[Rfam]
RNA: Eukaryotic small subunit ribosomal RNA, nucleotides 586 to 1138
Organism: Haplosporidium costale
RNA sequence: CUGUUAAAACGCUCGUAGUUGGAUAUCAGUCCGGGAGGGGCACGGGCUCCGCCGCGCGUAUGCCGCUCAGUCUCGAUCCCUGGCUCCCGCCCGGCCCCCCUGACUUAAUUCAGAGCUGCCCAUCUGCUCGGUCAAACGGGUCGGGCGGGCGUGUUCUGAUCUAUUACUUUGAGAAAAUUAAAGUGCUCAAAGCAGGCAGGCGCCUGAAUGCAUUAGCAUGGAAUAAUAAAACACGACUUUGGCAGUUAGUUUUGUUGGUUUUUGGGCCGGAGUAAUGAUUGAUAGAAACAAUUGGGGGUGCUAGUAUCGCCAGGCCAGAGGUAAAAUCCUUUGAUUCUGGUGAGACUACCUUAUGCGAAAGCAUUCACCAAGCGUGUUUUCUUUAAUCAAGAACUAGAGCCGGGGGAUCGAAGACGAUCAGAUACCGUCGUAGUCCCAGCCAUAAACGAUGUCGACUAAGCAUUGGGCAAUCAGACUUCCUCAGCGCUUUGUGAGAAAUCAAAGUUUUCGGACUCAGGGGGAGUAUGCUCGCAAGAGUGAAAUUUAAAGGAAU
Numbered sequence: 001c002u003g004u005u006a007a008a009a010c011g012c013u014c015g016u017a018g019u020u021g022g023a024u025a026u027c028a029g030u031c032c033g034g035g036a037g038g039g040g041c042a043c044g045g046g047c048u049c050c051g052c053c054g055c056g057c058g059u060a061u062g063c064c065g066c067u068c069a070g071u072c073u074c075g076a077u078c079c080c081u082g083g084c085u086c087c088c089g090c091c092c093g094g095c096c097c098c099c100c101u102g103a104c105u106u107a108a109u110u111c112a113g114a115g116c117u118g119c120c121c122a123u124c125u126g127c128u129c130g131g132u133c134a135a136a137c138g139g140g141u142c143g144g145g146c147g148g149g150c151g152u153g154u155u156c157u158g159a160u161c162u163a164u165u166a167c168u169u170u171g172a173g174a175a176a177a178u179u180a181a182a183g184u185g186c187u188c189a190a191a192g193c194a195g196g197c198a199g200g201c202g203c204c205u206g207a208a209u210g211c212a213u214u215a216g217c218a219u220g221g222a223a224u225a226a227u228a229a230a231a232c233a234c235g236a237c238u239u240u241g242g243c244a245g246u247u248a249g250u251u252u253u254g255u256u257g258g259u260u261u262u263u264g265g266g267c268c269g270g271a272g273u274a275a276u277g278a279u280u281g282a283u284a285g286a287a288a289c290a291a292u293u294g295g296g297g298g299u300g301c302u303a304g305u306a307u308c309g310c311c312a313g314g315c316c317a318g319a320g321g322u323a324a325a326a327u328c329c330u331u332u333g334a335u336u337c338u339g340g341u342g343a344g345a346c347u348a349c350c351u352u353a354u355g356c357g358a359a360a361g362c363a364u365u366c367a368c369c370a371a372g373c374g375u376g377u378u379u380u381c382u383u384u385a386a387u388c389a390a391g392a393a394c395u396a397g398a399g400c401c402g403g404g405g406g407a408u409c410g411a412a413g414a415c416g417a418u419c420a421g422a423u424a425c426c427g428u429c430g431u432a433g434u435c436c437c438a439g440c441c442a443u444a445a446a447c448g449a450u451g452u453c454g455a456c457u458a459a460g461c462a463u464u465g466g467g468c469a470a471u472c473a474g475a476c477u478u479c480c481u482c483a484g485c486g487c488u489u490u491g492u493g494a495g496a497a498a499u500c501a502a503a504g505u506u507u508u509c510g511g512a513c514u515c516a517g518g519g520g521g522a523g524u525a526u527g528c529u530c531g532c533a534a535g536a537g538u539g540a541a542a543u544u545u546a547a548a549g550g551a552a553u
Base pairs, nucleotide, nucleotide: 001517002516003515009514011394013392014391018387019386020385285381286380287379288378289376290375293372297369298368299367300366303347304346307343308342309341310340311339312338313337314336318329320327352363355362356361399440400439402437403436404435409433413429414428415427416426451513452512453511454506455505456504458489459488460487463484464483465482466481467480469478470477493500494499519545520544521543527538528537529536530535